The family of this 67-nucleotide RNA from Pontibacillus yanchengensis is "Bacillaceae-1 RNA".
The base pairs follow the family's consensus structure, which is taken from published work.
NCBI's taxonomy places the organism under Bacteria, Bacilli, Bacillaceae, Pontibacillus, Pontibacillus yanchengensis.
RNA sequence: UUCCGUGGAAGUUCGAUUAAGGUCGCUGCAUCGUGCAGCAACAUCGAACCAACCCACAUCGUGUGGG
Numbered sequence: 001u002u003c004c005g006u007g008g009a010a011g012u013u014c015g016a017u018u019a020a021g022g023u024c025g026c027u028g029c030a031u032c033g034u035g036c037a038g039c040a041a042c043a044u045c046g047a048a049c050c051a052a053c054c055c056a057c058a059u060c061g062u063g064u065g066g067g
Stems, first nucleotide, its partner, number of pairs: 011049007025039005053067005